A member of the RNA family "Ribosomal protein L10 leader" from Clostridium sp. CAG:167, 133 nucleotides long.
Rfam classes the family as a cis-regulatory leader.
Taxonomically the source falls in Clostridium (Bacteria, Bacillati, Bacillota, Eubacteriales).
This family is a putative r-protein leader autoregulatory structure found in B. subtilis and other low-GC Gram-positive bacteria.
Pairs were carried over by alignment from the consensus structure, which was predicted with CMfinder.
RNA sequence: CUAUCAGAGUUAUAACUGCCGUAGACAGCAAGUACGAAAGUGUAAGAGUGAUGAACCGCUUGCCGAGGAUGAUUGAGAAUUUUUGAAUGGAUAUUCCGGUCUGCGCGUGCAGUCGGGAUUUUUUUAUGUAAAA
Numbered sequence: 001c002u003a004u005c006a007g008a009g010u011u012a013u014a015a016c017u018g019c020c021g022u023a024g025a026c027a028g029c030a031a032g033u034a035c036g037a038a039a040g041u042g043u044a045a046g047a048g049u050g051a052u053g054a055a056c057c058g059c060u061u062g063c064c065g066a067g068g069a070u071g072a073u074u075g076a077g078a079a080u081u082u083u084u085g086a087a088u089g090g091a092u093a094u095u096c097c098g099g100u101c102u103g104c105g106c107g108u109g110c111a112g113u114c115g116g117g118a119u120u121u122u123u124u125u126a127u128g129u130a131a132a133a
Stems, first nucleotide, its partner, number of pairs: 028063006034041002095118003099114001101112004